[Rfam]
RNA sequence: AAAACCUUGUAGUGAUACAAGACUGGCAGGUGAGAAGUCAGCAGAAGCCGUAGUAGUGAAGAGAACUAACGAAAGUUAGAACGAGCGAAGGGC
Numbered sequence: 001a002a003a004a005c006c007u008u009g010u011a012g013u014g015a016u017a018c019a020a021g022a023c024u025g026g027c028a029g030g031u032g033a034g035a036a037g038u039c040a041g042c043a044g045a046a047g048c049c050g051u052a053g054u055a056g057u058g059a060a061g062a063g064a065a066c067u068a069a070c071g072a073a074a075g076u077u078a079g080a081a082c083g084a085g086c087g088a089a090g091g092g093c
Base pairs, nucleotide, nucleotide: 002024006021007020008019009018010017011016038045039044047093048092049091056086057085067078068077

The record is a 93-nucleotide RNA sequence from Amphibacillus xylanus, which matches "Group II catalytic intron D1-D4-1" in Rfam. The base pairs follow the family's consensus structure. The match comes from Rfam's covariance-model search (50 bits). About the family: Group II introns are found in rRNA, tRNA and mRNA of organelles in fungi, plants and protists, and also in mRNA in bacteria.